[Rfam]
RNA sequence: AUGUGGCUGGAACCGGUGCUAAAGGGUCUUUAACACCGGCUGGUAAUACUAGCCGGUGCUAAAGGAACCCUUUAGCACCUGUUCCAGCCACGGA
Numbered sequence: 001a002u003g004u005g006g007c008u009g010g011a012a013c014c015g016g017u018g019c020u021a022a023a024g025g026g027u028c029u030u031u032a033a034c035a036c037c038g039g040c041u042g043g044u045a046a047u048a049c050u051a052g053c054c055g056g057u058g059c060u061a062a063a064g065g066a067a068c069c070c071u072u073u074a075g076c077a078c079c080u081g082u083u084c085c086a087g088c089c090a091c092g093g094a
Stems, first nucleotide, its partner, number of pairs: 003091011015079013029065002032060001034058001036056002043049002
MIR5387 microRNA precursor family: a 94-nucleotide RNA sequence from Sorghum bicolor.
Pairs were carried over by alignment from the consensus structure, which was predicted with RNAalifold.
The source organism's lineage runs through Eukaryota, Viridiplantae, Mesangiospermae, Sorghinae and Sorghum.
A search with the family's covariance model found it, with a score of 73 bits.